[Rfam]
RNA sequence: UCCCUGGGGCUGGUAAAAAGGAACCAGAUCAAUUUGCAACUGGAUUUGGUCCCCUUCAACCAGCUGCAGCGG
Numbered sequence: 001u002c003c004c005u006g007g008g009g010c011u012g013g014u015a016a017a018a019a020g021g022a023a024c025c026a027g028a029u030c031a032a033u034u035u036g037c038a039a040c041u042g043g044a045u046u047u048g049g050u051c052c053c054c055u056u057c058a059a060c061c062a063g064c065u066g067c068a069g070c071g072g
Stems, first nucleotide, its partner, number of pairs: 004069003008065007017056002020052003024049007
The family of this 72-nucleotide RNA from Catharus ustulatus is "mir-133 microRNA precursor family". mir-133 was first experimentally characterised in mouse and homologues have since been discovered in several other species. The mature sequence is excised from the 3' arm of the hairpin. Its family is annotated with miRNA-mediated post-transcriptional gene silencing and RISC complex in the Gene Ontology. The match comes from Rfam's covariance-model search (69 bits). A reference for the family is Lagos-Quintana et al. (2002), "Identification of tissue-specific microRNAs from mouse", Curr Biol.